Shown here is a 107-nucleotide RNA sequence from Miscanthus lutarioriparius, a member of the family "Small nucleolar RNA snoR97". The match comes from Rfam's covariance-model search (50 bits). The family has 7 seed sequences and 862 matches in Rfam 15.1. A reference for the family is Marker et al. (2002), "Experimental RNomics: identification of 140 candidates for small non-messenger RNAs in the plant Arabidopsis thaliana", Curr Biol.
RNA sequence: UAUACGUCUGCAGCAAGGAUCUUCCAAAGCUUAGAAAGUCUGUGCUGUCAUCACCUUUGUCUUUGCUUGAAUAUCAGAGAUCGAAGUUGAAAAACAGCACAACAUAU
Numbered sequence: 001u002a003u004a005c006g007u008c009u010g011c012a013g014c015a016a017g018g019a020u021c022u023u024c025c026a027a028a029g030c031u032u033a034g035a036a037a038g039u040c041u042g043u044g045c046u047g048u049c050a051u052c053a054c055c056u057u058u059g060u061c062u063u064u065g066c067u068u069g070a071a072u073a074u075c076a077g078a079g080a081u082c083g084a085a086g087u088u089g090a091a092a093a094a095c096a097g098c099a100c101a102a103c104a105u106a107u
Base pairs, nucleotide, nucleotide: 041101042100043099044098045097046096047095053088055086056085057084058083060080061079062078063077